[Rfam]
RNA sequence: GUAGAAUAUGAGGGUAAGGAACCUCAUUUCUAAAUAAAAUUUCAUAACAUAGGGAGGUUAUGA
Numbered sequence: 001g002u003a004g005a006a007u008a009u010g011a012g013g014g015u016a017a018g019g020a021a022c023c024u025c026a027u028u029u030c031u032a033a034a035u036a037a038a039a040u041u042u043c044a045u046a047a048c049a050u051a052g053g054g055a056g057g058u059u060a061u062g063a
Base pairs, nucleotide, nucleotide: 002032003031004030005029006028008027009026010025011024012023013022042063043062044061045060046059047058048057